[Rfam]
RNA sequence: UCUCCCGCUUCUCCUCCCUGAGCGGGGCCUUGUUUCAAGGCUUGAAUCCCCGGCCAGCACUGCCGGGGAUUUUUUU
Numbered sequence: 001u002c003u004c005c006c007g008c009u010u011c012u013c014c015u016c017c018c019u020g021a022g023c024g025g026g027g028c029c030u031u032g033u034u035u036c037a038a039g040g041c042u043u044g045a046a047u048c049c050c051c052g053g054c055c056a057g058c059a060c061u062g063c064c065g066g067g068g069a070u071u072u073u074u075u076u
Stems, first nucleotide, its partner, number of pairs: 004026006027041006047069008